[Rfam]
RNA: Flavo-1 RNA
Organism: Lacinutrix sp. 5H-3-7-4
RNA sequence: UUAUUGCGAAAAGGAUAGUAGUGACAUCCUUUUUAUGACUUUAGGAAUAAAAAGAUAUAACGUAUAGCCUGGUUUUUA
Number, nucleotide and partner (000 for none) at each position: 001u000002u000003a000004u000005u000006g000007c000008g000009a000010a000011a000012a070013g069014g068015a000016u066017a065018g000019u000020a000021g061022u060023g000024a000025c000026a056027u055028c054029c000030u000031u000032u051033u050034u049035a048036u047037g000038a000039c044040u000041u000042u000043a000044g039045g000046a000047a036048u035049a034050a033051a032052a000053a000054g028055a027056u026057a000058u000059a000060a022061c021062g000063u000064a000065u017066a016067g000068c014069c013070u012071g000072g000073u000074u000075u000076u000077u000078a000